[Rfam]
Notes
Shown here is a 74-nucleotide RNA sequence from Desulforhopalus singaporensis, a member of the family "c-di-GMP-I-GGC riboswitch aptamer". The source organism's lineage runs through Bacteria, Pseudomonadati, Thermodesulfobacteriota, Desulfocapsaceae and Desulforhopalus. A search with the family's covariance model found it, with a score of 69 bits. The family's consensus secondary structure is taken from published work.

RNA sequence: AAAGAUAAAGCCAAACCUGCCGCAAGACAGGGACGGAAAGCUACGGAUCUUUAGAGAAAGCCGGGUUGCCUUUU
Numbered sequence: 001a002a003a004g005a006u007a008a009a010g011c012c013a014a015a016c017c018u019g020c021c022g023c024a025a026g027a028c029a030g031g032g033a034c035g036g037a038a039a040g041c042u043a044c045g046g047a048u049c050u051u052u053a054g055a056g057a058a059a060g061c062c063g064g065g066u067u068g069c070c071u072u073u074u
Stems, first nucleotide, its partner, number of pairs: 001074001003071002011036002016031004021026001034060001039067004044063003048057002